A member of the RNA family "Pseudomonas rpsL leader" from Pseudomonas sp. URIL14HWK12:I9, 126 nucleotides long. The organism belongs to Pseudomonas, within Bacteria. A reference for the family is Naville and Gautheret (2010), "Premature terminator analysis sheds light on a hidden world of bacterial transcriptional attenuation", Genome Biol.
RNA sequence: GGCCAGGUAGGCACCCUUGCCUUGACGGGGGGGAGUAUCCUCUUUAGACUCUUGUACCCCUAAAUUGGCGGGGCCUCGGCCCUGCCACUUUUGUUUAUGUCGAAAGACAACAGUGGAGCUAGUAGA
Numbered sequence: 001g002g003c004c005a006g007g008u009a010g011g012c013a014c015c016c017u018u019g020c021c022u023u024g025a026c027g028g029g030g031g032g033g034a035g036u037a038u039c040c041u042c043u044u045u046a047g048a049c050u051c052u053u054g055u056a057c058c059c060c061u062a063a064a065u066u067g068g069c070g071g072g073g074c075c076u077c078g079g080c081c082c083u084g085c086c087a088c089u090u091u092u093g094u095u096u097a098u099g100u101c102g103a104a105a106g107a108c109a110a111c112a113g114u115g116g117a118g119c120u121a122g123u124a125g126a
Stems, first nucleotide, its partner, number of pairs: 001021003028059003032055001034053002037050001040047002066087009096124002099108003